[Rfam]
RNA sequence: UGCAGAUGAUGUAAACGAAUAUUUGCUAUCUAAACCAAUCAUGUUGACGAAUUACUACCAAGAUCUCUGAUGCA
Number, nucleotide and partner (000 for none) at each position: 001u074002g073003c072004a071005g000006a000007u000008g000009a000010u000011g000012u000013a000014a000015a000016c000017g000018a000019a000020u000021a000022u000023u000024u000025g000026c000027u000028a000029u000030c000031u000032a000033a000034a000035c000036c000037a000038a000039u000040c000041a000042u000043g000044u000045u000046g000047a000048c000049g000050a000051a000052u000053u000054a000055c000056u000057a000058c000059c000060a000061a000062g000063a000064u000065c000066u000067c000068u000069g000070a000071u004072g003073c002074a001
This 74-nucleotide RNA from Gadus morhua belongs to the Rfam family "Small nucleolar RNA SNORD24". The source organism's lineage runs through Eukaryota, Chordata, Vertebrata, Neopterygii and Gadus. By type it is a C/D-box small nucleolar RNA. On this family, see Qu et al., Nucleic Acids Res 1995: "U24, a novel intron-encoded small nucleolar RNA with two 12 nt long, phylogenetically conserved complementarities to 28S rRNA".